mir-548 microRNA precursor family: an 84-nucleotide sequence from Pan troglodytes. For this family Rfam cites "Ultra-high throughput sequencing-based small RNA discovery and discrete statistical biomarker analysis in a collection of cervical tumours and matched controls" (Witten et al., BMC Biol, 2010). The family's consensus secondary structure was predicted with WAR. Its family is annotated with miRNA-mediated post-transcriptional gene silencing and RISC complex in the Gene Ontology. A search with the family's covariance model found it, with a score of 92 bits.

RNA sequence: UAUUAGGUUUGGGCAAAAGUAAUUGUGAUUUUUACCAUUGAAAGUAAUGGCAAAAAUCGCAAUUACUUUUGCCCCAACCUAAUA
Numbered sequence: 001u002a003u004u005a006g007g008u009u010u011g012g013g014c015a016a017a018a019g020u021a022a023u024u025g026u027g028a029u030u031u032u033u034a035c036c037a038u039u040g041a042a043a044g045u046a047a048u049g050g051c052a053a054a055a056a057u058c059g060c061a062a063u064u065a066c067u068u069u070u071g072c073c074c075c076a077a078c079c080u081a082a083u084a
Stems, first nucleotide, its partner, number of pairs: 001084009011074023035050006